[Rfam]
This 106-nucleotide sequence from Solibacillus sp. R5-41 belongs to the Rfam family "SAM riboswitch aptamer (S box leader)".
The SAM riboswitch is found upstream of a number of genes which code for proteins involved in methionine or cysteine biosynthesis in Gram-positive bacteria.
The match comes from Rfam's covariance-model search (82 bits).
RNA sequence: CUCUUAUAAAGAGAGGCGGAGGGAAGUGCCCUAUGAAGCCCGGCAACCAGCAUUGUAUGAUGAAAAGGUGCCAAGUCACACAAAGUUUAACUUUGAGAGAUGAGAG
Numbered sequence: 001c002u003c004u005u006a007u008a009a010a011g012a013g014a015g016g017c018g019g020a021g022g023g024a025a026g027u028g029c030c031c032u033a034u035g036a037a038g039c040c041c042g043g044c045a046a047c048c049a050g051c052a053u054u055g056u057a058u059g060a061u062g063a064a065a066a067g068g069u070g071c072c073a074a075g076u077c078a079c080a081c082a083a084a085g086u087u088u089a090a091c092u093u094u095g096a097g098a099g100a101u102g103a104g105a106g
Base pairs, nucleotide, nucleotide: 001106002105003104004103005102006101007100013041015040016039017038021031022030023029026079027078028077042072043071044070045069047068048067051062052061076098081095082094083093084092085091086090